A member of the RNA family "Plastid-ycf2 5UTR RNA" from Taxus chinensis, 74 nucleotides long. Pairs were carried over by alignment from the consensus structure, which was predicted with LocARNA. The family's RNA type in Rfam is cis-regulatory element. It scores 76 bits against the family's covariance model. On this family, see Richter et al., Plant Commun 2023: "Retrograde signaling in plants: A critical review focusing on the GUN pathway and beyond". Rfam's curators write: Plastid ycf2 is a non-coding RNA (ncRNA) recognised in plastids. It was found in the prime untranslated region (5UTR) of ycf2 genes, it presents a tRNA-like motif which suggests it can be involved in mRNA maturation, particularly involved in defining the precise 5' end of the transcript.
RNA sequence: AUGCAUCUAGUAGGAAUUGAACCUGUAACUUCCCAACUAUGAGUUGGGCACUUUUACCAUUCAACCAUGGAUGC
Dot-bracket structure: ..((((((.(((((.......)))))............(((.((((((...........)))))))))))))))